[Rfam]
RNA sequence: GCGGGUGUAGCUCAGUCGGUAGAGCGUCAGCUUCCCAAGCUGAAAGUCACGAGUUCGAGUCUCGUUACCCGCU
Numbered sequence: 001g002c003g004g005g006u007g008u009a010g011c012u013c014a015g016u017c018g019g020u021a022g023a024g025c026g027u028c029a030g031c032u033u034c035c036c037a038a039g040c041u042g043a044a045a046g047u048c049a050c051g052a053g054u055u056c057g058a059g060u061c062u063c064g065u066u067a068c069c070c071g072c073u
Stems, first nucleotide, its partner, number of pairs: 001072007010025004027043005049065005
tRNA: a 73-nucleotide sequence from Deinococcus cellulosilyticus. A search with the family's covariance model found it, with a score of 72 bits. Pairs were carried over by alignment from the consensus structure, which is taken from published work. Lineage of the source: Bacteria > Thermotogati > Deinococcales > Deinococcaceae > Deinococcus cellulosilyticus.